[Rfam]
A member of the RNA family "MIR2275 microRNA precursor family" from Leersia perrieri, 93 nucleotides long. Pairs were carried over by alignment from the consensus structure, which was predicted with RNAalifold. Taxonomically the source falls in Leersia (Eukaryota, Streptophytina, Embryophyta, Magnoliopsida). It scores 66 bits against the family's covariance model.
RNA sequence: UCAUUGAAAGUGAGGAUUAGAGGGAACUGAAUCACACUCAUCUGGAACAAAAGAUGGAUGGUUCAGUUUCUUCUAAUAUCUCACCUUGAAUGG
Numbered sequence: 001u002c003a004u005u006g007a008a009a010g011u012g013a014g015g016a017u018u019a020g021a022g023g024g025a026a027c028u029g030a031a032u033c034a035c036a037c038u039c040a041u042c043u044g045g046a047a048c049a050a051a052a053g054a055u056g057g058a059u060g061g062u063u064c065a066g067u068u069u070c071u072u073c074u075a076a077u078a079u080c081u082c083a084c085c086u087u088g089a090a091u092g093g
Base pairs, nucleotide, nucleotide: 004090005089007087008086011083012082013081014080016077017076018075019074020073021072023070024069025068026067027066028065029064030063032061033060